RNA sequence: GGGCCGGCUAUAGUCCAGCCGUUACUUCAGUGUUUCACAAGCUUGUUGUGUUUUGCCCCGUGAGGGGUUCGAUCCCACAGACACCUCUGGCCCAUUU
Number, nucleotide and partner (000 for none) at each position: 001g000002g092003g091004c090005c089006g088007g087008c000009u000010a000011u000012a000013g082014u081015c080016c000017a000018g078019c000020c000021g076022u000023u000024a000025c000026u000027u072028c071029a000030g069031u000032g000033u000034u000035u000036c000037a000038c000039a000040a000041g000042c000043u000044u000045g000046u000047u000048g000049u000050g000051u000052u000053u000054u000055g000056c000057c000058c000059c000060g000061u000062g000063a000064g000065g000066g000067g000068u000069u030070c000071g028072a027073u000074c000075c000076c021077a000078c018079a000080g015081a014082c013083a000084c000085c000086u000087c007088u006089g005090g004091c003092c002093c000094a000095u000096u000097u000
RNA: Vault RNA